[Rfam]
RNA sequence: GUAAAUUCUCAGGGCGGGGUGAAAUUCCCCACCGGCGGUAAAUCGUGUCAGCGACAUGAAAGCCCGCGAGCGCCCUCCAGAUUCUGGCGGGGUCAGCAGAUCUGGUGUCAUCACGACCUAGCGUGACUAUUCCAGAGCCGACGGUGUUGCCAUUUAGAUGGCUCAGUCCGGAUGAAAGAGAAUCAGA
Numbered sequence: 001g002u003a004a005a006u007u008c009u010c011a012g013g014g015c016g017g018g019g020u021g022a023a024a025u026u027c028c029c030c031a032c033c034g035g036c037g038g039u040a041a042a043u044c045g046u047g048u049c050a051g052c053g054a055c056a057u058g059a060a061a062g063c064c065c066g067c068g069a070g071c072g073c074c075c076u077c078c079a080g081a082u083u084c085u086g087g088c089g090g091g092g093u094c095a096g097c098a099g100a101u102c103u104g105g106u107g108u109c110a111u112c113a114c115g116a117c118c119u120a121g122c123g124u125g126a127c128u129a130u131u132c133c134a135g136a137g138c139c140g141a142c143g144g145u146g147u148u149g150c151c152a153u154u155u156a157g158a159u160g161g162c163u164c165a166g167u168c169c170g171g172a173u174g175a176a177a178g179a180g181a182a183u184c185a186g187a
Stems, first nucleotide, its partner, number of pairs: 005183006017029003033140002035067004062138002070097002101136005142170003
Dot-bracket structure: ....((((((......(((.......)))...((((((.......................[[))))..((........................))...(((((..........................)))))]])).(((.......................))).......))))))....

The family of this 187-nucleotide sequence from Shewanella algae is "FMN riboswitch aptamer (RFN element)". The RFN element is a highly conserved domain that is found frequently in the 5'-untranslated regions of prokaryotic mRNAs that encode for flavin mononucleotide (FMN) biosynthesis and transport proteins. The family's consensus secondary structure is taken from published work. It scores 86 bits against the family's covariance model.